[Rfam]
This 75-nucleotide RNA sequence from Thermoanaerobaculum aquaticum belongs to the Rfam family "tRNA". By type it is a transfer RNA. The base pairs follow the family's consensus structure, which is taken from published work. Taxonomically the source falls in Thermoanaerobaculum (Bacteria, Pseudomonadati, Acidobacteriota, Thermoanaerobaculales). A search with the family's covariance model found it, with a score of 66 bits. About the family: Transfer RNA (tRNA) molecules are approximately 80 nucleotides in length.
RNA sequence: GCGCCCGUAGCUCAGCCCGGAUAGAGCGUCAGACUCCGGAUCUGAAGGCCCCGCGUUCGAAUCGCGGCGGGCGCA
Numbered sequence: 001g002c003g004c005c006c007g008u009a010g011c012u013c014a015g016c017c018c019g020g021a022u023a024g025a026g027c028g029u030c031a032g033a034c035u036c037c038g039g040a041u042c043u044g045a046a047g048g049c050c051c052c053g054c055g056u057u058c059g060a061a062u063c064g065c066g067g068c069g070g071g072c073g074c075a
Stems, first nucleotide, its partner, number of pairs: 001074007010027004029045005051067005